The family of this 59-nucleotide RNA from Rhodococcus spelaei is "msiK RNA".
It is annotated as a cis-regulatory element.
The base pairs follow the family's consensus structure, which is taken from published work.
The match comes from Rfam's covariance-model search (47 bits).
The organism belongs to Rhodococcus, within Bacteria.
RNA sequence: GCCGGACCACCCUCAACUCGGAUCGUCCGGCACGUUCCUGCCGGUGAAGGGAUCGACGA
Numbered sequence: 001g002c003c004g005g006a007c008c009a010c011c012c013u014c015a016a017c018u019c020g021g022a023u024c025g026u027c028c029g030g031c032a033c034g035u036u037c038c039u040g041c042c043g044g045u046g047a048a049g050g051g052a053u054c055g056a057c058g059a
Stems, first nucleotide, its partner, number of pairs: 010051004016045001027044006